Shown here is a 71-nucleotide RNA from Mus musculus, a member of the family "mir-344 microRNA precursor family". The sequence is in the family's curated seed alignment. On this family, see Chiang et al., Genes Dev 2010: "Mammalian microRNAs: experimental evaluation of novel and previously annotated genes".
RNA sequence: UUUUCAGUCAGGCUGCUGGCUAGAGUACAGCUAUCAGCUGGUACCUGAUCUAGUCAAAGCCUGACAGUAAA
Numbered sequence: 001u002u003u004u005c006a007g008u009c010a011g012g013c014u015g016c017u018g019g020c021u022a023g024a025g026u027a028c029a030g031c032u033a034u035c036a037g038c039u040g041g042u043a044c045c046u047g048a049u050c051u052a053g054u055c056a057a058a059g060c061c062u063g064a065c066a067g068u069a070a071a
Base pairs, nucleotide, nucleotide: 007065008064009063011061012060013059014058017056018055019054020053021052022051023050024049028040029039030038031037
Dot-bracket structure: ......(((.((((..((((((((...((((.....))))........)))))))).)))).)))......